[Rfam]
RNA sequence: UCCAUCGUGAGGUGGAAUCUGAAGGAAGCUGGAGGCAAAAUCCUGGCCUGACGUACAGGAACUACAUAUAAGGCCAAAGUUGUCUGGAUAAAGUUACACAACAAACCGAAGUCCAACACUGCUCGGAGACAACAUGGUAAAUGUAGCAGGUAGAUGGGAUGAAAGAUAUCGUU
Numbered sequence: 001u002c003c004a005u006c007g008u009g010a011g012g013u014g015g016a017a018u019c020u021g022a023a024g025g026a027a028g029c030u031g032g033a034g035g036c037a038a039a040a041u042c043c044u045g046g047c048c049u050g051a052c053g054u055a056c057a058g059g060a061a062c063u064a065c066a067u068a069u070a071a072g073g074c075c076a077a078a079g080u081u082g083u084c085u086g087g088a089u090a091a092a093g094u095u096a097c098a099c100a101a102c103a104a105a106c107c108g109a110a111g112u113c114c115a116a117c118a119c120u121g122c123u124c125g126g127a128g129a130c131a132a133c134a135u136g137g138u139a140a141a142u143g144u145a146g147c148a149g150g151u152a153g154a155u156g157g158g159a160u161g162a163a164a165g166a167u168a169u170c171g172u173u
Base pairs, nucleotide, nucleotide: 001016002015003014004013005012006011028173030171031170032169036165040160041159042158043157044156045155046151047150048149049148050147062146063145064144065143066142067141073138074137075136079133080132081131082130083129084128086114087113088112089111093106094105095104
Group II catalytic intron D1-D4-3: a 173-nucleotide RNA from Arenibacter sp. NBRC 103722.